[Rfam]
RNA: SAM riboswitch aptamer (S box leader)
RNA sequence: ACCUCAUCCAGAGGGGCUGAGGGAACGGCCCGACGACGCCCCGGCAACCACCGCACUCGACUCGAUGACGAGGCCAGACGUGCGGCAGGUGCUAAUUCCGUCCCCGCGCGUCGCGCCGGGGAAAGAUGAGAG
Numbered sequence: 001a002c003c004u005c006a007u008c009c010a011g012a013g014g015g016g017c018u019g020a021g022g023g024a025a026c027g028g029c030c031c032g033a034c035g036a037c038g039c040c041c042c043g044g045c046a047a048c049c050a051c052c053g054c055a056c057u058c059g060a061c062u063c064g065a066u067g068a069c070g071a072g073g074c075c076a077g078a079c080g081u082g083c084g085g086c087a088g089g090u091g092c093u094a095a096u097u098c099c100g101u102c103c104c105c106g107c108g109c110g111u112c113g114c115g116c117c118g119g120g121g122a123a124a125g126a127u128g129a130g131a132g
Stems, first nucleotide, its partner, number of pairs: 003130006013042005021031003025101004043093004048089002051085006097124001102121005